Background:
A member of the RNA family "mir-263 microRNA precursor family" from Tigriopus californicus, 146 nucleotides long. On this family, see Li et al., BMC Genomics 2009: "Direct sequencing and expression analysis of a large number of miRNAs in Aedes aegypti and a multi-species survey of novel mosquito miRNAs". The source organism's lineage runs through Eukaryota, Mandibulata, Podoplea, Harpacticidae and Tigriopus.
[Rfam]
RNA sequence: CGUUUGCUCGUAAUGGCACUGGAAGAAUUCACGGGAUUUAUUUUCAUUGUUGAUCGACUCAGCCUUUUGUGGCUUUGAUUUGUUCAAGACCCAUUUUGUUGAUGUCCGUCAACCCCGUGAUCUUUCUGUUCCAUAAUGAGCGAGAU
Numbered sequence: 001c002g003u004u005u006g007c008u009c010g011u012a013a014u015g016g017c018a019c020u021g022g023a024a025g026a027a028u029u030c031a032c033g034g035g036a037u038u039u040a041u042u043u044u045c046a047u048u049g050u051u052g053a054u055c056g057a058c059u060c061a062g063c064c065u066u067u068u069g070u071g072g073c074u075u076u077g078a079u080u081u082g083u084u085c086a087a088g089a090c091c092c093a094u095u096u097u098g099u100u101g102a103u104g105u106c107c108g109u110c111a112a113c114c115c116c117g118u119g120a121u122c123u124u125u126c127u128g129u130u131c132c133a134u135a136a137u138g139a140g141c142g143a144g145a146u
Base pairs, nucleotide, nucleotide: 003144004143005142006141007140008139009138010137013134014133015132016131018129021126022125023123025122026121029120030119031118032117033116034115